[Rfam]
RNA sequence: GGUCUGUGAUGAGUUUUGGCAUGUAUUAUAUGACUUAAUUUGAAGAUUAUAAUUUUAGCUCUACAAUUUCUCUGAGACCUG
Numbered sequence: 001g002g003u004c005u006g007u008g009a010u011g012a013g014u015u016u017u018g019g020c021a022u023g024u025a026u027u028a029u030a031u032g033a034c035u036u037a038a039u040u041u042g043a044a045g046a047u048u049a050u051a052a053u054u055u056u057a058g059c060u061c062u063a064c065a066a067u068u069u070c071u072c073u074g075a076g077a078c079c080u081g
Stems, first nucleotide, its partner, number of pairs: 001079004